[Rfam]
RNA sequence: CUUAAGAAAUGGCAAACCUAUCGAAAGGUAGGGACGCAAAGCCGCAGGCCUAAGACAGUAUUGUUAGGGCAGCUGGGUUACCUAA
Numbered sequence: 001c002u003u004a005a006g007a008a009a010u011g012g013c014a015a016a017c018c019u020a021u022c023g024a025a026a027g028g029u030a031g032g033g034a035c036g037c038a039a040a041g042c043c044g045c046a047g048g049c050c051u052a053a054g055a056c057a058g059u060a061u062u063g064u065u066a067g068g069g070c071a072g073c074u075g076g077g078u079u080a081c082c083u084a085a
Stems, first nucleotide, its partner, number of pairs: 012037002017032006040079004045075003048070003055064003
Notes: Shown here is an 85-nucleotide sequence from Bacillus sp. V5-8f, a member of the family "c-di-GMP-I riboswitch aptamer". Taxonomically the source falls in Bacillus (Bacteria, Bacillota, Bacilli, Bacillaceae). The family's consensus secondary structure is taken from published work. The match comes from Rfam's covariance-model search (84 bits).